This 129-nucleotide sequence from Corynebacterium camporealensis belongs to the Rfam family "atpB RNA".
Rfam classes the family as a cis-regulatory element.
The match comes from Rfam's covariance-model search (128 bits).
Pairs were carried over by alignment from the consensus structure, which is taken from published work.
RNA sequence: CUGCCACGGCUUCGCUGAUGUGCGACGGAGUCCGUUGUCGUGGCAGAGAGUUUGAGACGUCCAUCGCACCACAUAGCCUUCAACAAGCUGUGUGGCCCGAACACGGGAGAGAACGCUGAGCGUUACAAC
Numbered sequence: 001c002u003g004c005c006a007c008g009g010c011u012u013c014g015c016u017g018a019u020g021u022g023c024g025a026c027g028g029a030g031u032c033c034g035u036u037g038u039c040g041u042g043g044c045a046g047a048g049a050g051u052u053u054g055a056g057a058c059g060u061c062c063a064u065c066g067c068a069c070c071a072c073a074u075a076g077c078c079u080u081c082a083a084c085a086a087g088c089u090g091u092g093u094g095g096c097c098c099g100a101a102c103a104c105g106g107g108a109g110a111g112a113a114c115g116c117u118g119a120g121c122g123u124u125a126c127a128a129c
Base pairs, nucleotide, nucleotide: 001046002045003044004043005042006041007040008039009038010037069095070094071093072092073091074090075089076088077087